[Rfam]
RNA sequence: CAUCCAUCGAGACCGGCUGAGGGACAGGCCCUUUGAAGCCGGGGCAACCUCCCCCUCCCUUCCCUCCCCGCAUGCGGGAGAGGGAAGGGAGGGGGAAGGUGCCAAUUCCUGCGGGGACCUGCGUCCGCCGCGAAGAUGGUUG
Numbered sequence: 001c002a003u004c005c006a007u008c009g010a011g012a013c014c015g016g017c018u019g020a021g022g023g024a025c026a027g028g029c030c031c032u033u034u035g036a037a038g039c040c041g042g043g044g045c046a047a048c049c050u051c052c053c054c055c056u057c058c059c060u061u062c063c064c065u066c067c068c069c070g071c072a073u074g075c076g077g078g079a080g081a082g083g084g085a086a087g088g089g090a091g092g093g094g095g096a097a098g099g100u101g102c103c104a105a106u107u108c109c110u111g112c113g114g115g116g117a118c119c120u121g122c123g124u125c126c127g128c129c130g131c132g133a134a135g136a137u138g139g140u141u142g
Base pairs, nucleotide, nucleotide: 001142002141004139005138006137007136008135013042014041015040016039017038021031022030023029025111026110027109028108043103044102045101046100048099049098050095051094052093053092107134114129115128
RNA: SAM riboswitch aptamer (S box leader)
Organism: Luteimonas sp.